[Rfam]
RNA: Vertebrate telomerase RNA
Organism: Aphelocoma coerulescens
RNA sequence: CGUGCCGGGGUGGGCAGGUCCUGCGGCCAACUAACCCUAAUGGCGGCUGCGCCCCUCACGCCCGCCCGCUGUUUUACUCGCUGACUUUCAGCGGGCAAAGGGAGCGGCCUAAGCAAAGGGGGGGAGGGUGGGGGGAAAGAGGUACGGCCUCAAAAAAAGCCAGCGAGGGGGAUCCACACCCCGGCCCACUUUGGGGUCCCGAUCUCUCCUCCGCAACCGGGAAUGCUCUCGCCGUCGCCCCUCGUGGAGGCCGCGGUCGGCAGGCUCAGCGCCACUACCGCCGCGAAGAGCUCGUCUCUGUCAGCCUCGGCGGCGGCUGGGACCGGAGGGCCGGCCCGCCCACCCUGGGCAGCCGGGGGACCCCAACAGAACAAAACGGGCGCGGCGCCGCCGAGCGCUGAGCAGCCGCGGCUCCCUCAGACGUGGGGUGCGCGGCCGGCGCCGCCCCGACACCC
Numbered sequence: 001c002g003u004g005c006c007g008g009g010g011u012g013g014g015c016a017g018g019u020c021c022u023g024c025g026g027c028c029a030a031c032u033a034a035c036c037c038u039a040a041u042g043g044c045g046g047c048u049g050c051g052c053c054c055c056u057c058a059c060g061c062c063c064g065c066c067c068g069c070u071g072u073u074u075u076a077c078u079c080g081c082u083g084a085c086u087u088u089c090a091g092c093g094g095g096c097a098a099a100g101g102g103a104g105c106g107g108c109c110u111a112a113g114c115a116a117a118g119g120g121g122g123g124g125a126g127g128g129u130g131g132g133g134g135g136a137a138a139g140a141g142g143u144a145c146g147g148c149c150u151c152a153a154a155a156a157a158a159g160c161c162a163g164c165g166a167g168g169g170g171g172a173u174c175c176a177c178a179c180c181c182c183g184g185c186c187c188a189c190u191u192u193g194g195g196g197u198c199c200c201g202a203u204c205u206c207u208c209c210u211c212c213g214c215a216a217c218c219g220g221g222a223a224u225g226c227u228c229u230c231g232c233c234g235u236c237g238c239c240c241c242u243c244g245u246g247g248a249g250g251c252c253g254c255g256g257u258c259g260g261c262a263g264g265c266u267c268a269g270c271g272c273c274a275c276u277a278c279c280g281c282c283g284c285g286a287a288g289a290g291c292u293c294g295u296c297u298c299u300g301u302c303a304g305c306c307u308c309g310g311c312g313g314c315g316g317c318u319g320g321g322a323c324c325g326g327a328g329g330g331c332c333g334g335c336c337c338g339c340c341c342a343c344c345c346u347g348g349g350c351a352g353c354c355g356g357g358g359g360a361c362c363c364c365a366a367c368a369g370a371a372c373a374a375a376a377c378g379g380g381c382g383c384g385g386c387g388c389c390g391c392c393g394a395g396c397g398c399u400g401a402g403c404a405g406c407c408g409c410g411g412c413u414c415c416c417u418c419a420g421a422c423g424u425g426g427g428g429u430g431c432g433c434g435g436c437c438g439g440c441g442c443c444g445c446c447c448c449g450a451c452a453c454c455c
Base pairs, nucleotide, nucleotide: 004185005184006183007182008181009180010179011178012177014175017174018173019172020171021170022169051105052104054102055101064096065095066094067093068092069091070090071089080164081163082162083161085159086157087156088155191366192365193364194363195362196361197360229319231317232316233315234314236312237311238310239309252285253284254283255282256281258280259279260278263273264272265271287299288298289297290296378447379446380445381444384443385442386441387440388439389438406435407434408433409432410431413428414427415426416425